[Rfam]
RNA sequence: ACCGUUCUUGUCUUGGGCAGUAUCUGUUCAAUGAAGGUCACCUGAGAACAGAGUGCUGACGAUCAUAAGACACUUUUACCCGCACCGCCGAAUUUAUCAUAGUUUGGUAUGGGUGCAAUUUUUGGAACC
Numbered sequence: 001a002c003c004g005u006u007c008u009u010g011u012c013u014u015g016g017g018c019a020g021u022a023u024c025u026g027u028u029c030a031a032u033g034a035a036g037g038u039c040a041c042c043u044g045a046g047a048a049c050a051g052a053g054u055g056c057u058g059a060c061g062a063u064c065a066u067a068a069g070a071c072a073c074u075u076u077u078a079c080c081c082g083c084a085c086c087g088c089c090g091a092a093u094u095u096a097u098c099a100u101a102g103u104u105u106g107g108u109a110u111g112g113g114u115g116c117a118a119u120u121u122u123u124g125g126a127a128c129c
Stems, first nucleotide, its partner, number of pairs: 005019001007017003020056003023052007035043002082116005088107006